The family of this 99-nucleotide sequence from Limosilactobacillus ingluviei is "trpB ncRNA motif". About the family: trpB ncRNA motif was reported as a strong cis regulatory motif candidate, with potential to be a cis regulatory riboswitch type, it have been identified in Firmicutes and Fusobacteria. Rfam classes the family as a cis-regulatory element. Gene Ontology term of the family: regulation of gene expression.
RNA sequence: GGUGCGGAUGCAGCCUGAAGAUUUUCAGAUUGCAUCUGUACCGGCUAGCUGAUUAAAUCAGUGCCCGUACGGAUCCCACGUGCGGGCUUUUCUUUUCCA
Numbered sequence: 001g002g003u004g005c006g007g008a009u010g011c012a013g014c015c016u017g018a019a020g021a022u023u024u025u026c027a028g029a030u031u032g033c034a035u036c037u038g039u040a041c042c043g044g045c046u047a048g049c050u051g052a053u054u055a056a057a058u059c060a061g062u063g064c065c066c067g068u069a070c071g072g073a074u075c076c077c078a079c080g081u082g083c084g085g086g087c088u089u090u091u092c093u094u095u096u097c098c099a
Base pairs, nucleotide, nucleotide: 001042002041003040004039005038006037007036008035009034010033011032015028016027017026018025063087064086065085066084067083068082069081070080071079
Description:
It scores 62 bits against the family's covariance model.